[Rfam]
RNA: Group I catalytic intron
RNA sequence: CCUCGACGGUCUCGCUUUGGCCGCCUGACGGAGUAAUCCGUCAGUGAAAAUCCCGAGAAUUGCUGGGACCUCCUGCUAGACCUCGGCACCACAACGUGGGGCGAAAGCCCGAGCGUGAUGGUUCGAAAAGCUGAGGGUAGGGAAAAUCAGCAGCCGAGCCCGCCUGGCGAAAGCCGACGGGAAGGUUCACAGACCAUGCACGGGAGAUCCCUCCGGGAUCAAGAUAUGGUCGGGUCUCACGUGAAAGCGUGAG
Numbered sequence: 001c002c003u004c005g006a007c008g009g010u011c012u013c014g015c016u017u018u019g020g021c022c023g024c025c026u027g028a029c030g031g032a033g034u035a036a037u038c039c040g041u042c043a044g045u046g047a048a049a050a051u052c053c054c055g056a057g058a059a060u061u062g063c064u065g066g067g068a069c070c071u072c073c074u075g076c077u078a079g080a081c082c083u084c085g086g087c088a089c090c091a092c093a094a095c096g097u098g099g100g101g102c103g104a105a106a107g108c109c110c111g112a113g114c115g116u117g118a119u120g121g122u123u124c125g126a127a128a129a130g131c132u133g134a135g136g137g138u139a140g141g142g143a144a145a146a147u148c149a150g151c152a153g154c155c156g157a158g159c160c161c162g163c164c165u166g167g168c169g170a171a172a173g174c175c176g177a178c179g180g181g182a183a184g185g186u187u188c189a190c191a192g193a194c195c196a197u198g199c200a201c202g203g204g205a206g207a208u209c210c211c212u213c214c215g216g217g218a219u220c221a222a223g224a225u226a227u228g229g230u231c232g233g234g235u236c237u238c239a240c241g242u243g244a245a246a247g248c249g250u251g252a253g
Stems, first nucleotide, its partner, number of pairs: 005025001007023005029040003051205004057199001061152006071143004153186002159180002166175003190232001192231005208218004238251005